The record is a 78-nucleotide RNA from Kalanchoe fedtschenkoi, which matches "Small nucleolar RNA R160" in Rfam. The family's RNA type in Rfam is C/D-box small nucleolar RNA. Gene Ontology terms of the family: nucleolus and RNA processing. snoR160 is a C/D box small nucleolar RNA, which acts as a methylation guide for 25S ribosomal RNA in plants. snoR160 has been alternatively named snoZ270 in rice.
[Rfam]
RNA sequence: GGCAAAAUGAUGAGACUUAUUGUAAUCUGAAUUUCGCUGUGGAGUUCAUACAUUUACCUUCAAAGUUCUCUGAUUGCC
Numbered sequence: 001g002g003c004a005a006a007a008u009g010a011u012g013a014g015a016c017u018u019a020u021u022g023u024a025a026u027c028u029g030a031a032u033u034u035c036g037c038u039g040u041g042g043a044g045u046u047c048a049u050a051c052a053u054u055u056a057c058c059u060u061c062a063a064a065g066u067u068c069u070c071u072g073a074u075u076g077c078c
Base pairs, nucleotide, nucleotide: 001078002077003076004075005074